Rfam assigns this 126-nucleotide RNA from Radiobacillus deserti to the family "ylbH leader".
The organism belongs to Radiobacillus, within Bacteria.
This family is a putative regulatory RNA structure that is found upstream of the ylbH gene in B. subtilis and related low GC Gram-positive bacteria.
The family's RNA type in Rfam is cis-regulatory leader.
[Rfam]
RNA sequence: UCAAAAAAAAGCCUGCAGAAAUUUUUCUGCAGGCCCUUUUUACCUUCUACAAUAGAAAGCAAAAAGGCAAAGGGAGAGGAGAAACCGGAGGAAGAACUUAUGGGGAAACGUAAGUCUUCUCCGUGU
Numbered sequence: 001u002c003a004a005a006a007a008a009a010a011g012c013c014u015g016c017a018g019a020a021a022u023u024u025u026u027c028u029g030c031a032g033g034c035c036c037u038u039u040u041u042a043c044c045u046u047c048u049a050c051a052a053u054a055g056a057a058a059g060c061a062a063a064a065a066g067g068c069a070a071a072g073g074g075a076g077a078g079g080a081g082a083a084a085c086c087g088g089a090g091g092a093a094g095a096a097c098u099u100a101u102g103g104g105g106a107a108a109c110g111u112a113a114g115u116c117u118u119c120u121c122c123g124u125g126u
Stems, first nucleotide, its partner, number of pairs: 011034009035074005045059001046057001048055001086123004091119004096115005
Its family is annotated with regulation of gene expression in the Gene Ontology. The base pairs follow the family's consensus structure.